TPP riboswitch aptamer (THI element): a 97-nucleotide RNA sequence from Marinobacter sp. BSs20148. Rfam describes the family as follows. Vitamin B(1) in its active form thiamin pyrophosphate (TPP) is an essential coenzyme that is synthesised by coupling of pyrimidine and thiazole moieties in bacteria. The source organism's lineage runs through Bacteria, Pseudomonadota, Gammaproteobacteria, Pseudomonadales and Marinobacter. It scores 66 bits against the family's covariance model.
[Rfam]
RNA sequence: GGGCUCGACACGGGGUGUCCUGCUUUGCAGGGCUGAGAGCACACCCGUUGAACCUGAUCCAGUUCACACUGGCGAAGGGAUGUCAGAAGGUGCGCUG
Numbered sequence: 001g002g003g004c005u006c007g008a009c010a011c012g013g014g015g016u017g018u019c020c021u022g023c024u025u026u027g028c029a030g031g032g033c034u035g036a037g038a039g040c041a042c043a044c045c046c047g048u049u050g051a052a053c054c055u056g057a058u059c060c061a062g063u064u065c066a067c068a069c070u071g072g073c074g075a076a077g078g079g080a081u082g083u084c085a086g087a088a089g090g091u092g093c094g095c096u097g
Stems, first nucleotide, its partner, number of pairs: 007084004011047004016041001017033005053078003059072004